[Rfam]
RNA sequence: UAUACCUGAAACGAUAAAAGCCCUACCUCUCUUCCAUCCUUACGGCUCUUUGUUCGUGCCAGUGUGAAUCAGGAUGACAAAAACCAA
Numbered sequence: 001u002a003u004a005c006c007u008g009a010a011a012c013g014a015u016a017a018a019a020g021c022c023c024u025a026c027c028u029c030u031c032u033u034c035c036a037u038c039c040u041u042a043c044g045g046c047u048c049u050u051u052g053u054u055c056g057u058g059c060c061a062g063u064g065u066g067a068a069u070c071a072g073g074a075u076g077a078c079a080a081a082a083a084c085c086a087a
Stems, first nucleotide, its partner, number of pairs: 035066002039062002041058005047052001

Shown here is an 87-nucleotide sequence from Bacillus thermotolerans, a member of the family "BsrC". The 301 nucleotide sequence from Kouji Nakamura has been trimmed to a highly conserved ~85 nucleotide long core to form this family. A reference for the family is Saito et al. (2008), "Novel small RNA-encoding genes in the intergenic regions of Bacillus subtilis", Gene. Rfam 15.1 lists 572 matches to the family in 553 species. A search with the family's covariance model found it, with a score of 91 bits. NCBI's taxonomy places the organism under Bacteria, Bacillati, Bacillota, Bacillaceae, Bacillus. It is annotated as a small RNA.